[Rfam]
RNA sequence: GCGCUGGCUUAGCUCAGUGGUUACAUCUGCAUUCUGAUUUGAACGGAAAAGCUCUUCCUCCUCACCGAGGGAUCAAACCACGGGCGCUGUCCAGCGUUUUC
Dot-bracket structure: .((((((....((((.((((.......((............................................))..)))))))).....)))))).....
Rfam assigns this 101-nucleotide RNA from Cyprinodon variegatus to the family "Vault RNA".
Rfam 15.1 lists 2,873 matches to the family in 431 species.
The source organism's lineage runs through Eukaryota, Bilateria, Cyprinodontiformes, Cyprinodontoidei and Cyprinodon.
The family's RNA type in Rfam is non-coding RNA gene.
A search with the family's covariance model found it, with a score of 60 bits.